[Rfam]
RNA sequence: GUGUGACAUAAUGAAGGCCUGUACUGAAAACACCCGCUGUUGGUACAGGCUGGAUGCUCAGCC
Number, nucleotide and partner (000 for none) at each position: 001g000002u000003g000004u000005g063006a000007c000008a000009u000010a000011a000012u000013g000014a000015a000016g051017g050018c049019c048020u047021g046022u045023a044024c043025u042026g000027a000028a000029a000030a040031c039032a038033c000034c000035c000036g000037c000038u032039g031040u030041u000042g025043g024044u023045a022046c021047a020048g019049g018050c017051u016052g000053g000054a000055u000056g000057c000058u000059c000060a000061g000062c000063c005
The family of this 63-nucleotide RNA sequence from Triplophysa tibetana is "Selenocysteine insertion sequence 1". The family has 61 seed sequences and 3,793 matches in Rfam 15.1. On this family, see Walczak et al., RNA 1996: "A novel RNA structural motif in the selenocysteine insertion element of eukaryotic selenoprotein mRNAs". The match comes from Rfam's covariance-model search (37 bits). Rfam classes the family as a cis-regulatory element. The incorporation of selenocysteine into a protein sequence is directed by an in-frame UGA codon (usually a stop codon) within the coding region of the mRNA. Selenoprotein mRNAs contain a conserved secondary structure in the 3' UTR that is required for the distinction of UGA stop from UGA selenocysteine.